[Rfam]
RNA sequence: UUCAGCUAAAGGCAAAUUGGUCGAAAGGCUAAGACGCAAAGCUCCAGGUCUACGGGGAUACCUAUGAUGGCUGAGCUACCUGA
Numbered sequence: 001u002u003c004a005g006c007u008a009a010a011g012g013c014a015a016a017u018u019g020g021u022c023g024a025a026a027g028g029c030u031a032a033g034a035c036g037c038a039a040a041g042c043u044c045c046a047g048g049u050c051u052a053c054g055g056g057g058a059u060a061c062c063u064a065u066g067a068u069g070g071c072u073g074a075g076c077u078a079c080c081u082g083a
Stems, first nucleotide, its partner, number of pairs: 012037002017032006040077004045073003048068003055062002
Dot-bracket structure: ...........((...((((((....))))))...))..((((.((((((....((....))...)))..)))))))......
c-di-GMP-I riboswitch aptamer: an 83-nucleotide RNA sequence from Pontibacillus halophilus.
Rfam's curators write: GEMM was predicted in a large-scale screen for bacterial structured RNA regulatory elements.
The organism belongs to Pontibacillus halophilus, within Bacteria.